This 146-nucleotide RNA sequence from Hymenolepis diminuta belongs to the Rfam family "U12 minor spliceosomal RNA". It scores 84 bits against the family's covariance model. The pairing is the family consensus, mapped onto this sequence. The family has 62 seed sequences and 2,106 matches in Rfam 15.1.

[Rfam]
RNA sequence: ACGCCUUAAACUAAUGAGUAAGGAAAAUAACGCUCCGGUGGAAUAACCGGUGCUCUGGUUAUGUCCAGCUCAAUGUUUGCAGGGCAAAGGCCUUCUCGGUAUGUCCUUCUACUUUUAAGGACGUGCUCGAUGAUUGUGGCCUACCC
Numbered sequence: 001a002c003g004c005c006u007u008a009a010a011c012u013a014a015u016g017a018g019u020a021a022g023g024a025a026a027a028u029a030a031c032g033c034u035c036c037g038g039u040g041g042a043a044u045a046a047c048c049g050g051u052g053c054u055c056u057g058g059u060u061a062u063g064u065c066c067a068g069c070u071c072a073a074u075g076u077u078u079g080c081a082g083g084g085c086a087a088a089g090g091c092c093u094u095c096u097c098g099g100u101a102u103g104u105c106c107u108u109c110u111a112c113u114u115u116u117a118a119g120g121a122c123g124u125g126c127u128c129g130a131u132g133a134u135u136g137u138g139g140c141c142u143a144c145c146c
Base pairs, nucleotide, nucleotide: 004023005022006021007020008019032053033052035050036049037048038047039046054068056067057066058065082146083145084144088142089141090140091139092138094136097129098128099126100125101124102123103122104121105120106119107118108117